[Rfam]
RNA: MIR159 microRNA precursor family
Organism: Gossypium gossypioides
RNA sequence: GGGUUAGGAAUGGAGCUCCUUGAAGUCCAAUAGAGGUUCUUGCUGGGUAUAUUGAGCUGCUUGGCUAUGGAUCCCACAGUCCUAUCCCAUGUUGGGAGGGAUAGGCUUGCGGCUUCCAUAUCUCGGGAGCUUCAUUACCUUAAAAGUUAGAUCCUUGUUUGGAUUGAAGGGAGCUCUACAUCUUUCUCCU
Number, nucleotide and partner (000 for none) at each position: 001g000002g000003g000004u000005u000006a000007g000008g000009a000010a000011u000012g000013g176014a175015g174016c173017u172018c171019c170020u169021u000022g000023a000024a165025g164026u163027c162028c161029a160030a000031u000032a000033g000034a000035g000036g153037u000038u000039c000040u000041u000042g000043c000044u000045g000046g000047g000048u000049a000050u000051a000052u000053u000054g000055a000056g000057c129058u128059g000060c126061u125062u000063g000064g000065c000066u120067a119068u118069g117070g000071a000072u000073c000074c112075c000076a000077c000078a000079g000080u000081c000082c000083u000084a000085u000086c000087c000088c000089a000090u000091g000092u000093u000094g000095g000096g000097a000098g000099g000100g000101a000102u000103a000104g000105g000106c000107u000108u000109g000110c000111g000112g074113c000114u000115u000116c000117c069118a068119u067120a066121u000122c000123u000124c000125g061126g060127g000128a058129g057130c000131u000132u000133c000134a000135u000136u000137a000138c000139c000140u000141u000142a000143a000144a000145a000146g000147u000148u000149a000150g000151a000152u000153c036154c000155u000156u000157g000158u000159u000160u029161g028162g027163a026164u025165u024166g000167a000168a000169g020170g019171g018172a017173g016174c015175u014176c013177u000178a000179c000180a000181u000182c000183u000184u000185u000186c000187u000188c000189c000190u000